[Rfam]
RNA sequence: GGGUGCGCACCAAUCCGGGUGUGCAGGGAAAGCGAUGGUCGGGCCGCCACG
Dot-bracket structure: ....(((((((......)))))))........((.((((......))))))
A member of the RNA family "nhaA-I RNA" from Noviherbaspirillum galbum, 51 nucleotides long.
NCBI's taxonomy places the organism under Bacteria, Pseudomonadati, Burkholderiales, Oxalobacteraceae, Noviherbaspirillum.
About the family: Acidobacteria, Alphaproteobacteria, Betaproteobacteria and Gammaproteobacteria, Verrucomicrobia, cand. division NC10.